[Rfam]
Nucleotides: 150
Stems, first nucleotide, its partner, number of pairs: 002059007009051001013047005020040003024033003079142005091131002096127003100123004
Number, partner (000 for none) and nucleotide at each position: 001000g002059g003058u004057u005056c006055g007054a008053u009051g010000c011000c012000a013047c014046g015045u016044c017043g018000a019000c020040g021039g022038u023000a024033g025032c026031g027000a028000a029000a030000g031026u032025g033024c034000a035000a036000u037000g038022a039021c040020c041000g042000a043017c044016g045015a046014u047013g048000c049000u050000a051009c052000g053008a054007u055006u056005g057004a058003a059002c060000c061000u062000a063000u064000a065000u066000u067000a068000a069000u070000u071000u072000a073000c074000g075000u076000g077000u078000u079142u080141c081140g082139c083138a084000u085000u086000c087000u088000a089000u090000a091131g092130g093000a094000a095000c096127c097126u098125g099000u100123g101122g102121a103120u104000u105000c106000u107000a108000u109000u110000u111000u112000u113000u114000c115000c116000g117000u118000a119000u120103g121102u122101c123100c124000a125098u126097g127096g128000a129000g130092c131091c132000g133000u134000u135000u136000u137000u138083u139082g140081c141080g142079a143000u144000u145000a146000c147000a148000u149000u150000u
Source information:
Small nucleolar RNA snoR2/U65: a 150-nucleotide RNA from Daucus carota. It is annotated as an H/ACA-box small nucleolar RNA. The family's consensus secondary structure was predicted with WAR. On this family, see Shaw et al., J Cell Sci 1998: "Localization and processing from a polycistronic precursor of novel snoRNAs in maize". The family is grouped with related families in Rfam's "SNORA65 clan". Gene Ontology terms of the family: RNA processing and nucleolus.